[Rfam]
GA-cis RNA: an 87-nucleotide sequence. Rfam classes the family as a small RNA. It is one of the family's seed sequences.

RNA sequence: ACGAGGCGAUGUACAUGUGCCAUAGGCACAUUUAGGAUGUACAUCGCCGAAAUGCCGCUGAACGAAUGUGAAGGGGCGAUUCCGAUA
Number, nucleotide and partner (000 for none) at each position: 001a000002c000003g000004a000005g000006g000007c000008g045009a044010u043011g042012u041013a040014c000015a031016u030017g029018u028019g027020c026021c000022a000023u000024a000025g000026g020027c019028a018029c017030a016031u015032u000033u000034a000035g000036g000037a000038u000039g000040u013041a012042c011043a010044u009045c008046g000047c000048c000049g000050a000051a000052a000053u000054g077055c076056c075057g000058c073059u072060g000061a000062a069063c068064g000065a000066a000067u000068g063069u062070g000071a000072a059073g058074g000075g056076g055077c054078g000079a000080u000081u000082c000083c000084g000085a000086u000087a000